Background
A member of the RNA family "ylbH leader" from Filobacillus milosensis, 135 nucleotides long. The source organism's lineage runs through Bacteria, Bacillota, Caryophanales, Bacillaceae and Filobacillus. This family is a putative regulatory RNA structure that is found upstream of the ylbH gene in B. subtilis and related low GC Gram-positive bacteria. The match comes from Rfam's covariance-model search (53 bits). Rfam classes the family as a cis-regulatory leader.

RNA sequence: AUAAAAAAGUGGCUCUUUUUAAUCCGCAGAUUAAAUAAGAGCCACAACUCUCCGUUUCACAACAGAGAGAGUACAAAAAGGGAGAGGAGAAACCGGAAGAAGGUCUUAUGGGGAAUGAUAAGACUUUCUCCGAAU
Numbered sequence: 001a002u003a004a005a006a007a008a009g010u011g012g013c014u015c016u017u018u019u020u021a022a023u024c025c026g027c028a029g030a031u032u033a034a035a036u037a038a039g040a041g042c043c044a045c046a047a048c049u050c051u052c053c054g055u056u057u058c059a060c061a062a063c064a065g066a067g068a069g070a071g072u073a074c075a076a077a078a079a080g081g082g083a084g085a086g087g088a089g090a091a092a093c094c095g096g097a098a099g100a101a102g103g104u105c106u107u108a109u110g111g112g113g114a115a116u117g118a119u120a121a122g123a124c125u126u127u128c129u130c131c132g133a134a135u
Stems, first nucleotide, its partner, number of pairs: 011043007048082004057070002060067001094132004099128002101125002104123005
Dot-bracket structure: ..........(((((((...................)))))))....((((.....((.(......).))........))))...........((((.((((.(((((..........))))))).))))))...